This 84-nucleotide RNA sequence from Firmicutes bacterium CAG:124 belongs to the Rfam family "Glycine riboswitch aptamer". Rfam describes the family as follows. This family represents the bacterial glycine riboswitch. A search with the family's covariance model found it, with a score of 45 bits.
RNA sequence: GAACUCUGGAAAGCUGCAUCCGCAGCACCGAAGAAGCAAUCCCGGUCAGCCGGGAGAAUCUUUCAGGUUUACGAACAGAGCGCG
Numbered sequence: 001g002a003a004c005u006c007u008g009g010a011a012a013g014c015u016g017c018a019u020c021c022g023c024a025g026c027a028c029c030g031a032a033g034a035a036g037c038a039a040u041c042c043c044g045g046u047c048a049g050c051c052g053g054g055a056g057a058a059u060c061u062u063u064c065a066g067g068u069u070u071a072c073g074a075a076c077a078g079a080g081c082g083c084g
Stems, first nucleotide, its partner, number of pairs: 001083001004080005014025004027068003030064002034062003040055004